[Rfam]
Rfam assigns this 418-nucleotide RNA sequence from Azospirillum sp. TSH58 to the family "Bacterial RNase P class A". NCBI's taxonomy places the organism under Bacteria, Pseudomonadati, Rhodospirillales, Azospirillaceae, Azospirillum. Gene Ontology terms of the family: tRNA processing, ribonuclease P activity and dimeric ribonuclease P complex. It scores 310 bits against the family's covariance model. The base pairs follow the family's consensus structure, which is taken from published work. Ribonuclease P (RNase P) is a ubiquitous endoribonuclease, found in archaea, bacteria and eukarya as well as chloroplasts and mitochondria. For this family Rfam cites "Ribonuclease P: unity and diversity in a tRNA processing ribozyme" (Frank and Pace, Annu Rev Biochem, 1998). It is annotated as a ribozyme.
RNA sequence: CCAGAUGGCCGGAUGGCCGCCUUCGACCUUUUGGAUCGGGGGAGGAAAGUCCGGGCUCCACGGAAACACGGUGCCGGCUAACGGCCGGCGGGGGCGACCCUAGGGAAAGUGCCACAGAGAGCAAACCGCCACCGGCCUCGUGCCGGCGGUAAGGGUGAAAGGGUGCGGUAAGAGCGCACCGCGCGCCUGGCAACAGGGGCGGCACGGUAAACCCCACCGGGAGCAAGACCGAAUAGGGGCGGCACGGCCCGCCAUUCCCGCUGAUCCUCGAUCGGUCGGGAUGGUCUGGGGCCAAGCGCGUUUCCGCGCCGCCGCCCGGGUUGGUUGCGUGAGGCGCCGGGCAACCGGCGUCCCAGAUGAAUGGCCAUCCAUCAGGGUAACCUGAGGACAAAACCCGGCUUACAGGCCAUCUGGCGUU
Numbered sequence: 001c002c003a004g005a006u007g008g009c010c011g012g013a014u015g016g017c018c019g020c021c022u023u024c025g026a027c028c029u030u031u032u033g034g035a036u037c038g039g040g041g042g043a044g045g046a047a048a049g050u051c052c053g054g055g056c057u058c059c060a061c062g063g064a065a066a067c068a069c070g071g072u073g074c075c076g077g078c079u080a081a082c083g084g085c086c087g088g089c090g091g092g093g094g095c096g097a098c099c100c101u102a103g104g105g106a107a108a109g110u111g112c113c114a115c116a117g118a119g120a121g122c123a124a125a126c127c128g129c130c131a132c133c134g135g136c137c138u139c140g141u142g143c144c145g146g147c148g149g150u151a152a153g154g155g156u157g158a159a160a161g162g163g164u165g166c167g168g169u170a171a172g173a174g175c176g177c178a179c180c181g182c183g184c185g186c187c188u189g190g191c192a193a194c195a196g197g198g199g200c201g202g203c204a205c206g207g208u209a210a211a212c213c214c215c216a217c218c219g220g221g222a223g224c225a226a227g228a229c230c231g232a233a234u235a236g237g238g239g240c241g242g243c244a245c246g247g248c249c250c251g252c253c254a255u256u257c258c259c260g261c262u263g264a265u266c267c268u269c270g271a272u273c274g275g276u277c278g279g280g281a282u283g284g285u286c287u288g289g290g291g292c293c294a295a296g297c298g299c300g301u302u303u304c305c306g307c308g309c310c311g312c313c314g315c316c317c318g319g320g321u322u323g324g325u326u327g328c329g330u331g332a333g334g335c336g337c338c339g340g341g342c343a344a345c346c347g348g349c350g351u352c353c354c355a356g357a358u359g360a361a362u363g364g365c366c367a368u369c370c371a372u373c374a375g376g377g378u379a380a381c382c383u384g385a386g387g388a389c390a391a392a393a394c395c396c397g398g399c400u401u402a403c404a405g406g407c408c409a410u411c412u413g414g415c416g417u418u
Base pairs, nucleotide, nucleotide: 001414002413003412004411005410006409007408008407009406010405011403012369013368014367015366016365017364018363020042021041022040023039024038025037026036028034047401048400049399051398052397053396054395055394056223057222058221059220065303066302069219070218071217072216073215074088075087076086077085078084089103090101091100092099093098104214105213109212110211111208112207113206126154127153128150129149130148132146133145134144135143136142162180163179164178165177166176167175181203182201183200184199186197187196188195189194227326228325229324230323237317238316239315240314241313242312296309297308298307299306333352334351335350336349337348338347339346340345